Rfam assigns this 75-nucleotide RNA sequence from Arthrobacter sp. ISL-28 to the family "Actino-pnp RNA". It is annotated as a cis-regulatory element. The base pairs follow the family's consensus structure, which is taken from published work.
Nucleotides: 075
Stems, first nucleotide, its partner, number of pairs: 001075001003073005009067005017059005023053004029047001
Number, partner (000 for none) and nucleotide at each position: 001075c002000g003073c004072g005071g006070u007069c008000c009067u010066c011065g012064g013063u014000a015000g016000u017059g018058a019057u020056c021055c022000c023053c024052g025051g026050g027000a028000a029047g030000c031000u032000u033000c034000g035000u036000u037000g038000a039000c040000u041000g042000a043000a044000g045000c046000c047029c048000g049000g050026c051025c052024c053023g054000u055021g056020g057019g058018u059017c060000u061000c062000g063013a064012u065011c066010g067009a068000u069007g070006a071005c072004c073003g074000g075001g